Source information
A member of the RNA family "Mammalian CPEB3 ribozyme" from Alligator sinensis, 73 nucleotides long. The mammalian CPEB3 ribozyme is a self cleaving RNA located in the second intron of the CPEB3 gene which belongs to a family of genes regulating messenger RNA polyadenylation. It scores 42 bits against the family's covariance model. Rfam links the family to the GO term RNA nuclease activity.
RNA sequence: AACUGCUGUAAUGGCUAUAGCAGAAGCACUCGCCACAGCCUUGUCAGGUUCUAAUGAAUCUGUGAAUUCUGCU
Numbered sequence: 001a002a003c004u005g006c007u008g009u010a011a012u013g014g015c016u017a018u019a020g021c022a023g024a025a026g027c028a029c030u031c032g033c034c035a036c037a038g039c040c041u042u043g044u045c046a047g048g049u050u051c052u053a054a055u056g057a058a059u060c061u062g063u064g065a066a067u068u069c070u071g072c073u
Base pairs, nucleotide, nucleotide: 011041013040014039015038016037019073020072021071022070023069024068025067026036045062046061047060048059049058050057051056
Lineage of the source: Eukaryota > Opisthokonta > Deuterostomia > Craniata > Alligator.